[Rfam]
RNA sequence: UCACCGGGCCUUGUCUUGACGGGGUGUCAGAAGCUCUUUAGACUCUUGUACCCCUAAAUUUGGCGGGACUGUUGUCCUGCCAUUUUGUUUUUCCUGUAAGACAAUAGCGUCGAAAGACAACAGUGGAGCUAGUAGA
Numbered sequence: 001u002c003a004c005c006g007g008g009c010c011u012u013g014u015c016u017u018g019a020c021g022g023g024g025u026g027u028c029a030g031a032a033g034c035u036c037u038u039u040a041g042a043c044u045c046u047u048g049u050a051c052c053c054c055u056a057a058a059u060u061u062g063g064c065g066g067g068a069c070u071g072u073u074g075u076c077c078u079g080c081c082a083u084u085u086u087g088u089u090u091u092u093c094c095u096g097u098a099a100g101a102c103a104a105u106a107g108c109g110u111c112g113a114a115a116g117a118c119a120a121c122a123g124u125g126g127a128g129c130u131a132g133u134a135g136a
Stems, first nucleotide, its partner, number of pairs: 004018001006016004022053003026049002029046003034041002061082009103133001105131004109118003

Rfam assigns this 136-nucleotide sequence from Pseudomonas sp. GV071 to the family "Pseudomonas rpsL leader". NCBI's taxonomy places the organism under Bacteria, Pseudomonadati, Pseudomonadota, Pseudomonadales, Pseudomonas. Its family is annotated with regulation of gene expression in the Gene Ontology. Pairs were carried over by alignment from the consensus structure, which is taken from published work. The match comes from Rfam's covariance-model search (126 bits). It is annotated as a cis-regulatory leader.